[Rfam]
Rfam assigns this 79-nucleotide RNA from Laticauda laticaudata to the family "Mammalian CPEB3 ribozyme". Rfam describes the family as follows. The mammalian CPEB3 ribozyme is a self cleaving RNA located in the second intron of the CPEB3 gene which belongs to a family of genes regulating messenger RNA polyadenylation. Its family is annotated with RNA nuclease activity in the Gene Ontology.

RNA sequence: UACCAUUAAAAGGGGGCCAUAAGAAGGAGGUGUCACAUUGCGGCCCCUGUCAGGUAUCUGUUUACCUGCGAAUCCUAUC
Numbered sequence: 001u002a003c004c005a006u007u008a009a010a011a012g013g014g015g016g017c018c019a020u021a022a023g024a025a026g027g028a029g030g031u032g033u034c035a036c037a038u039u040g041c042g043g044c045c046c047c048u049g050u051c052a053g054g055u056a057u058c059u060g061u062u063u064a065c066c067u068g069c070g071a072a073u074c075c076u077a078u079c
Stems, first nucleotide, its partner, number of pairs: 013047006023078001025076004029041001051068006

The family's consensus secondary structure is taken from published work. NCBI's taxonomy places the organism under Eukaryota, Gnathostomata, Lepidosauria, Bifurcata, Laticauda.